About this RNA:
Shown here is a 98-nucleotide RNA from Ursus maritimus, a member of the family "Vault RNA". By type it is a non-coding RNA gene. Taxonomically the source falls in Ursus (Eukaryota, Opisthokonta, Theria, Eutheria). Pairs were carried over by alignment from the consensus structure, which is taken from published work. This family of RNAs are found as part of the enigmatic vault ribonucleoprotein complex. The complex consists of a major vault protein (MVP), two minor vault proteins (VPARP and TEP1), and several small untranslated RNA molecules. It has been suggested that the vault complex is involved in drug resistance.
RNA sequence: GGGUCGGCUUUAGCUCAAGCGGUUACUUCGCGCAUUGUCUUCUGACUAGCAAUCCCUUCACAGGGGUUCGAGACCCGCGCGUGCUUUCUGACCCUUUU
Numbered sequence: 001g002g003g004u005c006g007g008c009u010u011u012a013g014c015u016c017a018a019g020c021g022g023u024u025a026c027u028u029c030g031c032g033c034a035u036u037g038u039c040u041u042c043u044g045a046c047u048a049g050c051a052a053u054c055c056c057u058u059c060a061c062a063g064g065g066g067u068u069c070g071a072g073a074c075c076c077g078c079g080c081g082u083g084c085u086u087u088c089u090g091a092c093c094c095u096u097u098u
Base pairs, nucleotide, nucleotide: 002093003092004091005090006089007088013082014081016079019078020077021076022075027072028071029070030069